[Rfam]
RNA sequence: AAAGCGGAAUCCGAAAAGCUUAAAAAGAGUAGACU
Numbered sequence: 001a002a003a004g005c006g007g008a009a010u011c012c013g014a015a016a017a018g019c020u021u022a023a024a025a026a027g028a029g030u031a032g033a034c035u
Stems, first nucleotide, its partner, number of pairs: 002021004012032001
This 35-nucleotide RNA belongs to the Rfam family "DUF805b RNA". It is one of the family's seed sequences.